RNA sequence: UCCUUCUGCAUCUACAGAACUCUGCUGUAAUUGUGUGACGCAGUCGAUCUGUUUCACACAAUAAUGCCAGCAGAGUUUCACGUAGAAGGAGAUCAUCGUGCACCAAACCGCAAAUGAGACGCAGCCGAACCUCUUUCUUAAUGUUCAUUGGCUGCUGUCUCAAGGUGAAGUGCUACAGCC
Numbered sequence: 001u002c003c004u005u006c007u008g009c010a011u012c013u014a015c016a017g018a019a020c021u022c023u024g025c026u027g028u029a030a031u032u033g034u035g036u037g038a039c040g041c042a043g044u045c046g047a048u049c050u051g052u053u054u055c056a057c058a059c060a061a062u063a064a065u066g067c068c069a070g071c072a073g074a075g076u077u078u079c080a081c082g083u084a085g086a087a088g089g090a091g092a093u094c095a096u097c098g099u100g101c102a103c104c105a106a107a108c109c110g111c112a113a114a115u116g117a118g119a120c121g122c123a124g125c126c127g128a129a130c131c132u133c134u135u136u137c138u139u140a141a142u143g144u145u146c147a148u149u150g151g152c153u154g155c156u157g158u159c160u161c162a163a164g165g166u167g168a169a170g171u172g173c174u175a176c177a178g179c180c
Base pairs, nucleotide, nucleotide: 020075021074023072024071025070026069027068030065031064032063033062036056037055040052041051042050043049100173101172102171103170107166122151124149127146128145129144